[Rfam]
Nucleotides: 102
Base pairs, nucleotide, nucleotide: 004096005095006094007093008092010086011085014082015081016078018077019076020075021074022073023072025069026068027067028066029065030064036061037060038059039058044053045052046051
Number, partner (000 for none) and nucleotide at each position: 001000g002000a003000c004096g005095a006094g007093u008092c009000a010086u011085u012000a013000a014082a015081a016078c017000a018077u019076u020075a021074u022073a023072a024000a025069a026068a027067u028066a029065a030064c031000a032000a033000a034000c035000c036061u037060g038059g039058u040000c041000a042000g043000g044053u045052c046051g047000g048000g049000a050000a051046c052045g053044a054000a055000g056000c057000a058039g059038c060037c061036a062000u063000a064030g065029u066028u067027a068026u069025u070000a071000u072023u073022u074021a075020u076019a077018a078016g079000u080000g081015u082014u083000a084000a085011a086010a087000u088000u089000u090000u091000u092008g093007a094006c095005u096004c097000g098000u099000c100000u101000a102000u
Shown here is a 102-nucleotide RNA sequence from Candidatus Profftella armatura, a member of the family "Bacterial small signal recognition particle RNA". The family's RNA type in Rfam is non-coding RNA gene. Lineage of the source: Bacteria > Pseudomonadati > Pseudomonadota > Betaproteobacteria > Candidatus Profftella. The signal recognition particle (SRP) is a universally conserved ribonucleoprotein involved in the co-translational targeting of proteins to membranes. Clan: SRP clan. On this family, see Rosenblad et al., Nucleic Acids Res 2003: "SRPDB: Signal Recognition Particle Database".